[Rfam]
RNA sequence: CAUACGCACUAGGGGAGCGAAAGCUGAGAAACAGGUGAUCCUGUGACCCUAAAUACCCGAACUAGGUUAUGCUAGCGUGGGGAAGUGCGGUGAAUGAUAU
Dot-bracket structure: .....(((((((((..((....))......(((((....)))))..)))).....((((..((((......))))..))))..)))))............
RNA: TPP riboswitch aptamer (THI element)
Organism: Texcoconibacillus texcoconensis